[Rfam]
RNA sequence: UUUAUAGACUUCUAGGGUUCCGGUUUGGGUGAAACGGAGCAAGUAUUGAACUUGUGUCUGGAUUUGAUGCAAAUGCUGGUCCAAGAGAGGUCGGUAAGCUAAUUGGUUAUAAAUUUUGAAUGCCUGAUUAGUUUAUUACACGGCGGGACAAAAGCCCGGGAGGA
Numbered sequence: 001u002u003u004a005u006a007g008a009c010u011u012c013u014a015g016g017g018u019u020c021c022g023g024u025u026u027g028g029g030u031g032a033a034a035c036g037g038a039g040c041a042a043g044u045a046u047u048g049a050a051c052u053u054g055u056g057u058c059u060g061g062a063u064u065u066g067a068u069g070c071a072a073a074u075g076c077u078g079g080u081c082c083a084a085g086a087g088a089g090g091u092c093g094g095u096a097a098g099c100u101a102a103u104u105g106g107u108u109a110u111a112a113a114u115u116u117u118g119a120a121u122g123c124c125u126g127a128u129u130a131g132u133u134u135a136u137u138a139c140a141c142g143g144c145g146g147g148a149c150a151a152a153a154g155c156c157c158g159g160g161a162g163g164a
Stems, first nucleotide, its partner, number of pairs: 007092006015082002020079002022076001023074005093137014139159001141162001145157003
A member of the RNA family "Guanidine-I riboswitch aptamer" from Amazonocrinis nigriterrae, 164 nucleotides long. Its family is annotated with regulation of gene expression in the Gene Ontology. About the family: This family represents a conserved RNA structure found upstream of the ykkC and yxkD genes in Bacillus subtilis and related genes in other bacteria. The match comes from Rfam's covariance-model search (70 bits).